[Rfam]
This 112-nucleotide RNA from Fervidobacterium nodosum belongs to the Rfam family "TPP riboswitch aptamer (THI element)".

RNA sequence: UAAUGCCUGGAGGGGAGCUCCAAAAUGCGGGGCUGAGAGGAAGGAGUCAAUCCUUCGACCCUUCGAACCUGAUCCGGGUAAUACCGGCGGAGGGACCAGGUGACUCAAAAAU
Numbered sequence: 001u002a003a004u005g006c007c008u009g010g011a012g013g014g015g016a017g018c019u020c021c022a023a024a025a026u027g028c029g030g031g032g033c034u035g036a037g038a039g040g041a042a043g044g045a046g047u048c049a050a051u052c053c054u055u056c057g058a059c060c061c062u063u064c065g066a067a068c069c070u071g072a073u074c075c076g077g078g079u080a081a082u083a084c085c086g087g088c089g090g091a092g093g094g095a096c097c098a099g100g101u102g103a104c105u106c107a108a109a110a111a112u
Base pairs, nucleotide, nucleotide: 006100007099008098009097010096011062012061013060014059017033018032019031020030021029040056041055042054043053044052068093069092070091074087075086076085077084
Overview
Pairs were carried over by alignment from the consensus structure, which is taken from published work. NCBI's taxonomy places the organism under Bacteria, Thermotogati, Thermotogae, Fervidobacteriaceae, Fervidobacterium nodosum. It is one of the family's seed sequences.